[Rfam]
A member of the RNA family "Small Cajal body specific RNA 1" from Pogona vitticeps, 164 nucleotides long. Rfam 15.1 lists 715 matches to the family in 617 species. A search with the family's covariance model found it, with a score of 116 bits. Rfam describes the family as follows. scaRNAs are a specific class of small nuclear RNAs which localise to the Cajal bodies and guide the modification of RNA polymerase II transcribed spliceosomal RNAs U1, U2, U4, U5 and U12. The family's consensus secondary structure was predicted with RNAalifold. For this family Rfam cites "Cajal body-specific small nuclear RNAs: a novel class of 2'-O-methylation and pseudouridylation guide RNAs" (Darzacq et al., EMBO J, 2002).
RNA sequence: AAGCACUUGAUACUAACCAAGCCAUCUCUAUCUUUGUUCUCAUUUAGAGUACAGAGGUACAACUAGUGAUUGGCUGGGUCCAAAAAGUGCAACAUGAAAACAAGCCAUGUGAUUAAGCUCCGUGUGUGCAGCAUCACACUGGGUUAUAACUCAGCGGCACAUAC
Numbered sequence: 001a002a003g004c005a006c007u008u009g010a011u012a013c014u015a016a017c018c019a020a021g022c023c024a025u026c027u028c029u030a031u032c033u034u035u036g037u038u039c040u041c042a043u044u045u046a047g048a049g050u051a052c053a054g055a056g057g058u059a060c061a062a063c064u065a066g067u068g069a070u071u072g073g074c075u076g077g078g079u080c081c082a083a084a085a086a087g088u089g090c091a092a093c094a095u096g097a098a099a100a101c102a103a104g105c106c107a108u109g110u111g112a113u114u115a116a117g118c119u120c121c122g123u124g125u126g127u128g129c130a131g132c133a134u135c136a137c138a139c140u141g142g143g144u145u146a147u148a149a150c151u152c153a154g155c156g157g158c159a160c161a162u163a164c
Base pairs, nucleotide, nucleotide: 003090004089005088006087007086008085016079017078018077020075021074022073023072024070025069026068027061029059030058031057032056033054038049040047104158105157106156122137123136124135139154140153141152142151143150144149

The family's RNA type in Rfam is small Cajal body RNA. Lineage of the source: Eukaryota > Vertebrata > Bifurcata > Amphibolurinae > Pogona. Gene Ontology terms of the family: RNA processing, nucleolus and Cajal body.